The record is a 174-nucleotide RNA from Magnetospirillum gryphiswaldense, which matches "Manganese Mn2+ riboswitch aptamer (yybP-ykoY)" in Rfam.
NCBI's taxonomy places the organism under Bacteria, Pseudomonadota, Rhodospirillaceae, Magnetospirillum gryphiswaldense, Magnetospirillum gryphiswaldense MSR-1.
Rfam describes the family as follows. This RNA was originally discovered in E. coli during a large scale screen and was named SraF. The family was later found to exist upstream of related families of protein genes in many bacteria, including the the yybP and ykoK genes in B. subtilis.
Its family is annotated with manganese ion binding in the Gene Ontology.
It scores 51 bits against the family's covariance model.
Nucleotides: 174
Stems, first nucleotide, its partner, number of pairs: 019034003036078010053068005079173003083169003
Number, partner (000 for none) and nucleotide at each position: 001000c002000c003000u004000u005000u006000g007000g008000g009000g010000a011000g012000u013000a014000g015000c016000c017000g018000c019034u020033c021032u022000c023000g024000c025000c026000u027000a028000g029000c030000a031000g032021a033020g034019a035000g036078g037077g038076g039075c040074g041073c042072g043071u044070c045069a046000a047000c048000a049000g050000a051000c052000u053068u054067g055066g056065c057064c058000u059000u060000u061000u062000g063000g064057g065056g066055c067054c068053g069045u070044g071043g072042c073041g074040c075039g076038u077037c078036c079173g080172g081171c082000c083169a084168u085167c086000g087000g088000g089000u090000u091000u092000g093000g094000c095000a096000a097000g098000a099000c100000c101000a102000u103000g104000g105000g106000u107000u108000g109000c110000g111000g112000g113000u114000u115000c116000c117000g118000u119000c120000c121000g122000g123000c124000c125000g126000g127000g128000c129000g130000g131000g132000g133000a134000c135000c136000u137000u138000u139000g140000c141000a142000g143000c144000c145000u146000c147000g148000u149000g150000c151000g152000u153000c154000u155000u156000g157000c158000c159000c160000g161000g162000c163000c164000u165000u166000g167085g168084a169083u170000u171081g172080u173079u174000c